[Rfam]
RNA: Purine riboswitch aptamer
Organism: Anaerosolibacter carboniphilus
RNA sequence: AAAAUAUAAAGAAUCAACCCUCAUAUAUGUUUGGGAAUAUGGCCCGAAUGUCUCUACCAGACGACCGUGAAUUGUCUGACUAUGAGUGGAAUUGACGUGGAU
Numbered sequence: 001a002a003a004a005u006a007u008a009a010a011g012a013a014u015c016a017a018c019c020c021u022c023a024u025a026u027a028u029g030u031u032u033g034g035g036a037a038u039a040u041g042g043c044c045c046g047a048a049u050g051u052c053u054c055u056a057c058c059a060g061a062c063g064a065c066c067g068u069g070a071a072u073u074g075u076c077u078g079a080c081u082a083u084g085a086g087u088g089g090a091a092u093u094g095a096c097g098u099g100g101a102u
Stems, first nucleotide, its partner, number of pairs: 018088001020086006029049007058078007